[Rfam]
RNA sequence: GCCAAAUGAUGUCAAGUUAUGUGGCAUUAGCUCUCAGGGCAAAGAUGACCUUCAUCUAUCACCCCAUGCUGAUGGCU
Numbered sequence: 001g002c003c004a005a006a007u008g009a010u011g012u013c014a015a016g017u018u019a020u021g022u023g024g025c026a027u028u029a030g031c032u033c034u035c036a037g038g039g040c041a042a043a044g045a046u047g048a049c050c051u052u053c054a055u056c057u058a059u060c061a062c063c064c065c066a067u068g069c070u071g072a073u074g075g076c077u
Base pairs, nucleotide, nucleotide: 001076002075003074004073030040031039032038033037